[Rfam]
RNA sequence: GCACUGGUUGGGUGUUAUGCCGCUGUGACCCGUUGUUGCACAUUGAAGGAGAGCGGCGUCAAAUGUGCGAACAGUGC
Number, nucleotide and partner (000 for none) at each position: 001g077002c076003a075004c074005u073006g072007g000008u000009u032010g031011g030012g029013u000014g000015u000016u000017a000018u000019g000020c000021c000022g000023c000024u000025g000026u000027g000028a000029c012030c011031c010032g009033u000034u000035g000036u000037u069038g068039c067040a066041c065042a064043u063044u062045g000046a000047a000048g000049g000050a000051g000052a000053g000054c000055g000056g000057c000058g000059u000060c000061a000062a044063a043064u042065g041066u040067g039068c038069g037070a000071a000072c006073a005074g004075u003076g002077c001
RNA: CyVA-1 RNA